RNA sequence: CAUGGCAAGGAUAAAAACAUGUCCCGGUAGGUAGUCCGGGAGCGGCGUCCGCGCCGUCAGUAACCUGCCUCCUUUGGUUGUCCGUUCCUUGCCCCGUCCCA
Numbered sequence: 001c002a003u004g005g006c007a008a009g010g011a012u013a014a015a016a017a018c019a020u021g022u023c024c025c026g027g028u029a030g031g032u033a034g035u036c037c038g039g040g041a042g043c044g045g046c047g048u049c050c051g052c053g054c055c056g057u058c059a060g061u062a063a064c065c066u067g068c069c070u071c072c073u074u075u076g077g078u079u080g081u082c083c084g085u086u087c088c089u090u091g092c093c094c095c096g097u098c099c100c101a
Stems, first nucleotide, its partner, number of pairs: 004093008022041006042057006067078003
RNA: azaaromatic riboswitch aptamer (yjdF RNA)
Organism: Gehongia tenuis